[Rfam]
RNA sequence: GUGGGAGUAGCUCAGUUGGUUAGAGCAUCGGAUUGUGAUUCCGAGGGUCGUGGGUUCAAAUCCCAUCUUCCACC
Number, nucleotide and partner (000 for none) at each position: 001g073002u072003g071004g070005g069006a068007g067008u000009a000010g026011c025012u024013c023014a000015g000016u000017u000018g000019g000020u000021u000022a000023g013024a012025g011026c010027a000028u044029c043030g042031g041032a040033u000034u000035g000036u000037g000038a000039u000040u032041c031042c030043g029044a028045g000046g000047g000048u000049c000050g066051u065052g064053g063054g062055u000056u000057c000058a000059a000060a000061u000062c054063c053064c052065a051066u050067c007068u006069u005070c004071c003072a002073c001074c000
RNA: tRNA